Annotation
Rfam assigns this 60-nucleotide RNA sequence from Canis lupus to the family "mir-345 microRNA precursor family". The family's consensus secondary structure was predicted with RNAalifold. On this family, see Chiang et al., Genes Dev 2010: "Mammalian microRNAs: experimental evaluation of novel and previously annotated genes". The family has 14 seed sequences and 135 matches in Rfam 15.1.

[Rfam]
RNA sequence: UGCUGACUCUUAGUCCAGUGCUCGUGAUGGCUGGUGGGCCCUGAACUAGGGGUCUGGAGG
Numbered sequence: 001u002g003c004u005g006a007c008u009c010u011u012a013g014u015c016c017a018g019u020g021c022u023c024g025u026g027a028u029g030g031c032u033g034g035u036g037g038g039c040c041c042u043g044a045a046c047u048a049g050g051g052g053u054c055u056g057g058a059g060g
Stems, first nucleotide, its partner, number of pairs: 001058001003056001005054007013046002016043003020039004